A member of the RNA family "Y RNA" from Pan paniscus, 109 nucleotides long. Rfam classes the family as a non-coding RNA gene. A reference for the family is Van Horn et al. (1995), "Caenorhabditis elegans embryos contain only one major species of Ro RNP", RNA. The base pairs follow the family's consensus structure, which is taken from published work.
RNA sequence: GGCUGGUCUGAAGGCAGUGAGUUAUCUCAAUUGAUUGUUCAUAGUUACAGAUUGAACUUGUUGUUCCACUCUUCCCAGCCUUCUCUCUAUUGCACUUGACUAGUCUAAG
Numbered sequence: 001g002g003c004u005g006g007u008c009u010g011a012a013g014g015c016a017g018u019g020a021g022u023u024a025u026c027u028c029a030a031u032u033g034a035u036u037g038u039u040c041a042u043a044g045u046u047a048c049a050g051a052u053u054g055a056a057c058u059u060g061u062u063g064u065u066c067c068a069c070u071c072u073u074c075c076c077a078g079c080c081u082u083c084u085c086u087c088u089a090u091u092g093c094a095c096u097u098g099a100c101u102a103g104u105c106u107a108a109g
Stems, first nucleotide, its partner, number of pairs: 001105008010097002014093002016088002019085003033071002037067001